[Rfam]
Shown here is a 113-nucleotide sequence from Otolemur garnettii, a member of the family "Y RNA". Rfam classes the family as a non-coding RNA gene. The literature on the family includes a 2000 paper in Genes Dev by Chen et al., "Ro ribonucleoproteins contribute to the resistance of Deinococcus radiodurans to ultraviolet irradiation". Rfam describes the family as follows. Y RNAs are components of the Ro ribonucleoprotein particle (Ro RNP), in association with Ro60 and La proteins. The Y RNAs and Ro60 and La proteins are well conserved, but the function of the Ro RNP is not known. Lineage of the source: Eukaryota > Gnathostomata > Euarchontoglires > Strepsirrhini > Otolemur.
RNA sequence: GGUUGGUCCAAAGGUAAUGACCUAUCUCAGUUGAUUGUUUACAUUCAGUUAUACUGUCAAACUCCUUGCUCUACCCUCCCCCACUCCUCACCAUUGUCCUUGACUAGUCUUAA
Numbered sequence: 001g002g003u004u005g006g007u008c009c010a011a012a013g014g015u016a017a018u019g020a021c022c023u024a025u026c027u028c029a030g031u032u033g034a035u036u037g038u039u040u041a042c043a044u045u046c047a048g049u050u051a052u053a054c055u056g057u058c059a060a061a062c063u064c065c066u067u068g069c070u071c072u073a074c075c076c077u078c079c080c081c082c083a084c085u086c087c088u089c090a091c092c093a094u095u096g097u098c099c100u101u102g103a104c105u106a107g108u109c110u111u112a113a
Base pairs, nucleotide, nucleotide: 001109002108003107004106005105006104007103008102010101011100014097015096018090019089020088030074031073033071034070